[Rfam]
RNA sequence: GCCGCCGCAGCAGCCGCCCUACGGCGGUGGCGGCGGGGGUUACCCCGGCUACUGAGCCGUAGCGCGAAAACCGUAAACGAAACUUCAGCCCCCGGCCCGCCAAGGCCGGGGGCUGAU
Numbered sequence: 001g002c003c004g005c006c007g008c009a010g011c012a013g014c015c016g017c018c019c020u021a022c023g024g025c026g027g028u029g030g031c032g033g034c035g036g037g038g039g040u041u042a043c044c045c046c047g048g049c050u051a052c053u054g055a056g057c058c059g060u061a062g063c064g065c066g067a068a069a070a071c072c073g074u075a076a077a078c079g080a081a082a083c084u085u086c087a088g089c090c091c092c093c094g095g096c097c098c099g100c101c102a103a104g105g106c107c108g109g110g111g112g113c114u115g116a117u
Base pairs, nucleotide, nucleotide: 002030003029004028005027006026007025008024032072033071036045037044038043046059047058048057049056085116086115087114088113089112090111091110092109093108094107095106096105097104